[Rfam]
RNA sequence: UCCUUAUCAAGAGAGGUGGAGGGAAUCGGCCCUAUGAAACCCGGCAACCACAUUUAAACAUGUACGGUGCCAAUUCCUGCAGGCAUGCUGCCUGAAAGAUGAGGG
Numbered sequence: 001u002c003c004u005u006a007u008c009a010a011g012a013g014a015g016g017u018g019g020a021g022g023g024a025a026u027c028g029g030c031c032c033u034a035u036g037a038a039a040c041c042c043g044g045c046a047a048c049c050a051c052a053u054u055u056a057a058a059c060a061u062g063u064a065c066g067g068u069g070c071c072a073a074u075u076c077c078u079g080c081a082g083g084c085a086u087g088c089u090g091c092c093u094g095a096a097a098g099a100u101g102a103g104g105g
Stems, first nucleotide, its partner, number of pairs: 001105008013042001015041003021032003026079001028077002043071004048067002050063004075097001080094006

The record is a 105-nucleotide RNA from Ruminiclostridium cellobioparum, which matches "SAM riboswitch aptamer (S box leader)" in Rfam. The family's consensus secondary structure is taken from published work. Lineage of the source: Bacteria > Bacillota > Eubacteriales > Ruminiclostridium > Ruminiclostridium cellobioparum subsp. termitidis. A search with the family's covariance model found it, with a score of 96 bits.